Overview
The record is a 201-nucleotide sequence from Ktedonobacteria bacterium brp13, which matches "FMN riboswitch aptamer (RFN element)" in Rfam. From the family's description: The RFN element is a highly conserved domain that is found frequently in the 5'-untranslated regions of prokaryotic mRNAs that encode for flavin mononucleotide (FMN) biosynthesis and transport proteins. This element is a metabolite-dependent riboswitch that directly binds FMN in the absence of proteins. In Bacillus subtilis, the riboswitch most likely controls gene expression by causing premature transcription termination within the 5' untranslated region of the ribDEAHT operon and precluding access to the ribosome-binding site of ypaA mRNA.The FMN riboswitch structure, reported in present an FMN-bound six-stem junction, adopts a butterfly-like scaffold, stapled together by opposingly directed but nearly identically folded peripheral domains. Taxonomically the source falls in Ktedonobacteria (Bacteria, Bacillati, Chloroflexota). Rfam links the family to the GO term FMN binding.

[Rfam]
RNA sequence: GAAAACCUUCGGGGCAGGGUGCAAUUCCCGACCGGCGGUAAAGUACAUUGAGACAUGCCUAUGCUAUCGCACGCUGAAGAUAGCGACAAUGGGUAUGAGCUGUACCUAGCCCGCGAGCUCUCCGACGACGUAUGGAGUCGAGAUGGCAGAUUCGGUGUGAUUCCGAAGCCGACGGUAUAGUCCGGAUGGGAGAAGGUUACA
Numbered sequence: 001g002a003a004a005a006c007c008u009u010c011g012g013g014g015c016a017g018g019g020u021g022c023a024a025u026u027c028c029c030g031a032c033c034g035g036c037g038g039u040a041a042a043g044u045a046c047a048u049u050g051a052g053a054c055a056u057g058c059c060u061a062u063g064c065u066a067u068c069g070c071a072c073g074c075u076g077a078a079g080a081u082a083g084c085g086a087c088a089a090u091g092g093g094u095a096u097g098a099g100c101u102g103u104a105c106c107u108a109g110c111c112c113g114c115g116a117g118c119u120c121u122c123c124g125a126c127g128a129c130g131u132a133u134g135g136a137g138u139c140g141a142g143a144u145g146g147c148a149g150a151u152u153c154g155g156u157g158u159g160a161u162u163c164c165g166a167a168g169c170c171g172a173c174g175g176u177a178u179a180g181u182c183c184g185g186a187u188g189g190g191a192g193a194a195g196g197u198u199a200c201a
Stems, first nucleotide, its partner, number of pairs: 004198007017029003031181002033171002035114004117147003151167005173184003